[Rfam]
RNA sequence: UUCGGCCCGCAACCCGCUUCCGGUUGCCUCCCGCACGCCGUCGCCGACGCAUCUCGUUCCGAGCAUUCCGAUCAGGCUUUCGCAGCGAUCCUGCCGUCUUCCUGCGGCGCGGC
Numbered sequence: 001u002u003c004g005g006c007c008c009g010c011a012a013c014c015c016g017c018u019u020c021c022g023g024u025u026g027c028c029u030c031c032c033g034c035a036c037g038c039c040g041u042c043g044c045c046g047a048c049g050c051a052u053c054u055c056g057u058u059c060c061g062a063g064c065a066u067u068c069c070g071a072u073c074a075g076g077c078u079u080u081c082g083c084a085g086c087g088a089u090c091c092u093g094c095c096g097u098c099u100u101c102c103u104g105c106g107g108c109g110c111g112g113c
Stems, first nucleotide, its partner, number of pairs: 009027006037113004042109005085097003089093001
This 113-nucleotide RNA sequence from Geopseudomonas guangdongensis belongs to the Rfam family "Pseudomon-Rho RNA".